[Rfam]
RNA: tRNA
RNA sequence: UGGAGUAUAGCCAAGUGGUAAGGCAUCGGCCUUUGAUGCCGAGAAACAAAGGUUCGAAUCCUUUUACUCCAG
Numbered sequence: 001u002g003g004a005g006u007a008u009a010g011c012c013a014a015g016u017g018g019u020a021a022g023g024c025a026u027c028g029g030c031c032u033u034u035g036a037u038g039c040c041g042a043g044a045a046a047c048a049a050a051g052g053u054u055c056g057a058a059u060c061c062u063u064u065u066a067c068u069c070c071a072g
Stems, first nucleotide, its partner, number of pairs: 001071007010024003026042005048064005